[Rfam]
Nucleotides: 120
Base pairs, nucleotide, nucleotide: 007038008037009036012033013032014031015030016029043075044074045073046072047071048070049069050068051067084115085114086113087112088111089110090109091108092107093106094105
Number, partner (000 for none) and nucleotide at each position: 001000g002000a003000g004000c005000u006000u007038c008037g009036c010000a011000a012033g013032g014031g015030u016029u017000u018000a019000c020000c021000u022000c023000c024000u025000c026000c027000c028000a029016a030015a031014c032013c033012c034000g035000c036009g037008c038007g039000a040000u041000u042000u043075a044074a045073g046072g047071c048070u049069g050068g051067c052000g053000c054000c055000u056000c057000c058000u059000c060000c061000u062000c063000c064000c065000a066000a067051g068050c069049c070048a071047g072046c073045c074044u075043u076000a077000u078000c079000c080000u081000a082000a083000c084115a085114c086113a087112c088111c089110c090109g091108c092107c093106g094105c095000a096000c097000c098000u099000c100000c101000u102000c103000c104000c105094g106093c107092g108091g109090c110089g111088g112087g113086u114085g115084u116000u117000g118000u119000u120000u